[Rfam]
RNA sequence: ACAUAAAAAUGUUCGUCAACUCGUAUAUCUUCAGUAAUAAGGACUGAAAGUUUCUACCAAGUCACCGUAAAUGGCUUGACUACGGGUGUUUAUAUACUACAU
Number, nucleotide and partner (000 for none) at each position: 001a000002c000003a000004u000005a000006a000007a000008a000009a000010u000011g000012u000013u000014c000015g000016u000017c000018a000019a087020c086021u085022c084023g083024u082025a081026u000027a000028u000029c000030u048031u047032c046033a045034g044035u043036a000037a000038u000039a000040a000041g000042g000043a035044c034045u033046g032047a031048a030049a000050g000051u000052u000053u000054c000055u000056a000057c000058c078059a077060a076061g075062u074063c073064a072065c000066c000067g000068u000069a000070a000071a000072u064073g063074g062075c061076u060077u059078g058079a000080c000081u025082a024083c023084g022085g021086g020087u019088g000089u000090u000091u000092a000093u000094a000095u000096a000097c000098u000099a000100c000101a000102u000
The family of this 102-nucleotide RNA sequence from Clostridium grantii is "Purine riboswitch aptamer". Pairs were carried over by alignment from the consensus structure, which is taken from published work.